[Rfam]
RNA sequence: ACUGCCGUAACAGCCAUUGCAGAAGCGCUCACGUCGCGGCCCUGUCAUAUUCUAGCGAAUCUGCAAAUUCUGCU
Numbered sequence: 001a002c003u004g005c006c007g008u009a010a011c012a013g014c015c016a017u018u019g020c021a022g023a024a025g026c027g028c029u030c031a032c033g034u035c036g037c038g039g040c041c042c043u044g045u046c047a048u049a050u051u052c053u054a055g056c057g058a059a060u061c062u063g064c065a066a067a068u069u070c071u072g073c074u
Base pairs, nucleotide, nucleotide: 013040014039015038019073020072021071022070023069024068025037026036027035046063047062049060050059051058052057